This 66-nucleotide sequence from Lentibacillus populi belongs to the Rfam family "Bacillaceae-1 RNA". The family's consensus secondary structure is taken from published work. By type it is a small RNA.
RNA sequence: ACGGUUGUUUGUUCGGUUAAGAUCGCUGCUCCCGGCAGCAACACCGAACCACCUGCGUUGCGCGGG
Numbered sequence: 001a002c003g004g005u006u007g008u009u010u011g012u013u014c015g016g017u018u019a020a021g022a023u024c025g026c027u028g029c030u031c032c033c034g035g036c037a038g039c040a041a042c043a044c045c046g047a048a049c050c051a052c053c054u055g056c057g058u059u060g061c062g063c064g065g066g
Stems, first nucleotide, its partner, number of pairs: 011049007025039005052066005
The organism belongs to Lentibacillus, within Bacteria.